Shown here is a 135-nucleotide RNA from Nothoprocta perdicaria, a member of the family "Small nucleolar RNA SNORA61". About the family: ACA61 is a member of the H/ACA class of snoRNA that guide the sites of modification of uridines to pseudouridines. The family has 25 seed sequences and 881 matches in Rfam 15.1. NCBI's taxonomy places the organism under Eukaryota, Deuterostomia, Gnathostomata, Tinamiformes, Nothoprocta. Gene Ontology terms of the family: RNA processing and nucleolus. Pairs were carried over by alignment from the consensus structure, which was predicted with PFOLD.
RNA sequence: GCCCUCCAGAUCCCUUUCCCAUUAGAUCUGAAUACCGAUCUUGUGGUCGAAAAAGGAGGAAGAGCAAAAUGCCGGCUGGCCUGUGCCUCUCUGCUCGUGGGCCGUGCUCUGAGAAGGGCCAGGCUGCAGACAUGG
Numbered sequence: 001g002c003c004c005u006c007c008a009g010a011u012c013c014c015u016u017u018c019c020c021a022u023u024a025g026a027u028c029u030g031a032a033u034a035c036c037g038a039u040c041u042u043g044u045g046g047u048c049g050a051a052a053a054a055g056g057a058g059g060a061a062g063a064g065c066a067a068a069a070u071g072c073c074g075g076c077u078g079g080c081c082u083g084u085g086c087c088u089c090u091c092u093g094c095u096c097g098u099g100g101g102c103c104g105u106g107c108u109c110u111g112a113g114a115a116g117g118g119c120c121a122g123g124c125u126g127c128a129g130a131c132a133u134g135g
Stems, first nucleotide, its partner, number of pairs: 003059005019046004025040004076122007